[Rfam]
Bacterial small signal recognition particle RNA: a 98-nucleotide RNA sequence from Treponema saccharophilum. The organism belongs to Treponema saccharophilum, within Bacteria. Rfam describes the family as follows. The signal recognition particle (SRP) is a universally conserved ribonucleoprotein involved in the co-translational targeting of proteins to membranes. The match comes from Rfam's covariance-model search (67 bits). By type it is a non-coding RNA gene.
RNA sequence: AGUCGGGAACUUCACAAAACAUCCUUCAAAACCCUGCGAGAGCCGGAAGGCAGCAACAGUAUGAAGACCUUGUUUGUGCUGGAGUAUUCCCGGCUCUU
Numbered sequence: 001a002g003u004c005g006g007g008a009a010c011u012u013c014a015c016a017a018a019a020c021a022u023c024c025u026u027c028a029a030a031a032c033c034c035u036g037c038g039a040g041a042g043c044c045g046g047a048a049g050g051c052a053g054c055a056a057c058a059g060u061a062u063g064a065a066g067a068c069c070u071u072g073u074u075u076g077u078g079c080u081g082g083a084g085u086a087u088u089c090c091c092g093g094c095u096c097u098u
Stems, first nucleotide, its partner, number of pairs: 004092005009085006015076001017075005024066005034059003042051003